This 78-nucleotide RNA from Ructibacterium gallinarum belongs to the Rfam family "pemK RNA".

RNA sequence: AUAAUGAUACUCCCGCCUUGAACGCUUCACAGCAUUGGGCGGCUGGACGAGAACCGUGCAGGGGUGCAAUUCCCGUGG
Number, nucleotide and partner (000 for none) at each position: 001a000002u000003a000004a000005u000006g000007a000008u000009a000010c000011u000012c075013c042014c041015g040016c039017c038018u037019u000020g000021a000022a000023c000024g000025c000026u000027u000028c000029a000030c000031a000032g000033c000034a000035u000036u000037g018038g017039g016040c015041g014042g013043c061044u060045g059046g000047a057048c056049g055050a000051g000052a000053a000054c000055c049056g048057u047058g000059c045060a044061g043062g074063g073064g072065u000066g000067c000068a000069a000070u000071u000072c064073c063074c062075g012076u000077g000078g000

A search with the family's covariance model found it, with a score of 69 bits.